[Rfam]
RNA sequence: UUCAACUUUACAACGGAAGAUAGGAAUGAAGAAACCAUGUUUUCUGAAACUAUCUCAUCAAUACUCCUGCGUGCUCUAUGAAUGACAGUUCCUGGGGUUCGAAGCACAGGUAGAGUCGGCAGAAGGAAGGCUGGAGCCAUUCAUUAGAAAAGGUAUGCCGACUGAUAUGCCGGAUGGCUGAAAA
Numbered sequence: 001u002u003c004a005a006c007u008u009u010a011c012a013a014c015g016g017a018a019g020a021u022a023g024g025a026a027u028g029a030a031g032a033a034a035c036c037a038u039g040u041u042u043u044c045u046g047a048a049a050c051u052a053u054c055u056c057a058u059c060a061a062u063a064c065u066c067c068u069g070c071g072u073g074c075u076c077u078a079u080g081a082a083u084g085a086c087a088g089u090u091c092c093u094g095g096g097g098u099u100c101g102a103a104g105c106a107c108a109g110g111u112a113g114a115g116u117c118g119g120c121a122g123a124a125g126g127a128a129g130g131c132u133g134g135a136g137c138c139a140u141u142c143a144u145u146a147g148a149a150a151a152g153g154u155a156u157g158c159c160g161a162c163u164g165a166u167a168u169g170c171c172g173g174a175u176g177g178c179u180g181a182a183a184a
Stems, first nucleotide, its partner, number of pairs: 018055006031045001033043002056176004066110004070101002073098006080091004117172005125163002129159002131147003
Dot-bracket structure: .................((((((.......(.((.......)).)....))))))((((......((((((.((((((.((((....)))).)))))).)).....))))......(((((...((..(((((...........)))..........))..))....)))))))))........
RNA: Group II catalytic intron D1-D4-5
Organism: Sporosarcina limicola